The family of this 64-nucleotide RNA from Corynebacterium lipophiloflavum is "L31-Corynebacteriaceae ribosomal protein leader".
A reference for the family is Eckert and Weinberg (2020), "Discovery of 20 novel ribosomal leader candidates in bacteria and archaea", BMC Microbiol.
Clan: Ribosomal Protein L31 Leader clan.
The family's consensus secondary structure is taken from published work.

RNA sequence: ACUCAGGCACGAUCCGCCUAACGAAUAGCCGCGCGGAACCGACCUGUAGUUCAAUCCUGAGGGA
Numbered sequence: 001a002c003u004c005a006g007g008c009a010c011g012a013u014c015c016g017c018c019u020a021a022c023g024a025a026u027a028g029c030c031g032c033g034c035g036g037a038a039c040c041g042a043c044c045u046g047u048a049g050u051u052c053a054a055u056c057c058u059g060a061g062g063g064a
Stems, first nucleotide, its partner, number of pairs: 001050003004046004013037005019031001